[Rfam]
Shown here is a 90-nucleotide sequence from Micromonospora sp. MH33, a member of the family "ZMP/ZTP riboswitch aptamer (pfl RNA motif)". A search with the family's covariance model found it, with a score of 48 bits. The family's consensus secondary structure is taken from published work.
RNA sequence: GGCGCGGGCCGUGACUGGCGCGUGGGGAUGGAGAACCAUCGGGGAGCGGCCCCGUCAUGAGGACGCCUGCCGAGCGCCUGGGCCUUCCGC
Numbered sequence: 001g002g003c004g005c006g007g008g009c010c011g012u013g014a015c016u017g018g019c020g021c022g023u024g025g026g027g028a029u030g031g032a033g034a035a036c037c038a039u040c041g042g043g044g045a046g047c048g049g050c051c052c053c054g055u056c057a058u059g060a061g062g063a064c065g066c067c068u069g070c071c072g073a074g075c076g077c078c079u080g081g082g083c084c085u086u087c088c089g090c
Stems, first nucleotide, its partner, number of pairs: 006052007015043002017078005028039004069083003